Shown here is an 81-nucleotide RNA from Rhinopithecus bieti, a member of the family "mir-506 microRNA precursor family".
Rfam links the family to the GO terms RISC complex and miRNA-mediated post-transcriptional gene silencing.
Its Rfam clan is "mir-506 microRNA precursor clan".
The literature on the family includes a 2008 paper in BMC Bioinformatics by Artzi et al., "miRNAminer: a tool for homologous microRNA gene search".
It is one of the family's seed sequences.

[Rfam]
RNA sequence: AUGUGUAGUGCCUUAUUCAGGAAGGUGUUACUUAAUGUAUUAACAUUUGUAAGGCACCCUUCUGAGUAGAGUAAUGUGCAA
Numbered sequence: 001a002u003g004u005g006u007a008g009u010g011c012c013u014u015a016u017u018c019a020g021g022a023a024g025g026u027g028u029u030a031c032u033u034a035a036u037g038u039a040u041u042a043a044c045a046u047u048u049g050u051a052a053g054g055c056a057c058c059c060u061u062c063u064g065a066g067u068a069g070a071g072u073a074a075u076g077u078g079c080a081a
Base pairs, nucleotide, nucleotide: 002080003079004078006076007075009073010072011071013069014068015067016066017065018064019063020062021061022060024058025057027055028054029053033049034048035046036045037044